About this RNA: A member of the RNA family "mir-147 microRNA precursor family" from Heterocephalus glaber, 78 nucleotides long. The base pairs follow the family's consensus structure, which was predicted with RNAalifold. Rfam 15.1 lists 757 matches to the family in 593 species. On this family, see Kawaji et al., BMC Genomics 2008: "Hidden layers of human small RNAs". A search with the family's covariance model found it, with a score of 88 bits.
RNA sequence: UAGGAAUCUAGUGGAAACACUUCCGUACAGACUAGAGUCUGCACACCAGUGUGCGGAAGUGCUUCUGCUACAUUUUUA
Numbered sequence: 001u002a003g004g005a006a007u008c009u010a011g012u013g014g015a016a017a018c019a020c021u022u023c024c025g026u027a028c029a030g031a032c033u034a035g036a037g038u039c040u041g042c043a044c045a046c047c048a049g050u051g052u053g054c055g056g057a058a059g060u061g062c063u064u065c066u067g068c069u070a071c072a073u074u075u076u077u078a
Base pairs, nucleotide, nucleotide: 001078002077004075005074006073007072009070010069011068012067013066014065015064016063018061019060020059021058022057023056024055025054026053027052028051029050032049033048